[Rfam]
RNA sequence: AAGUUGAAGGAGCAAUACCGACCCUCUUGAUAGAAUAAGAGGGUCGGUAUUGCUCCUUCAU
Numbered sequence: 001a002a003g004u005u006g007a008a009g010g011a012g013c014a015a016u017a018c019c020g021a022c023c024c025u026c027u028u029g030a031u032a033g034a035a036u037a038a039g040a041g042g043g044u045c046g047g048u049a050u051u052g053c054u055c056c057u058u059c060a061u
Stems, first nucleotide, its partner, number of pairs: 006059012021044002024041006
Dot-bracket structure: .....((((((((((((...((.((((((......)))))).))...))))))))))))..
A member of the RNA family "Plastid-psbA-4 3UTR RNA" from Papaver somniferum, 61 nucleotides long. It is annotated as a cis-regulatory element. Rfam describes the family as follows. Plastid psbA-4 is a non-coding RNA (ncRNA) present in plastids. It was identified in inverted repeat sequences in the 3 prime untranslate region (3UTR) of photosystem II quinone-binding protein (psbA). Rfam's curators put it in the seed alignment. Taxonomically the source falls in Papaver (Eukaryota, Viridiplantae, Euphyllophyta, Ranunculales).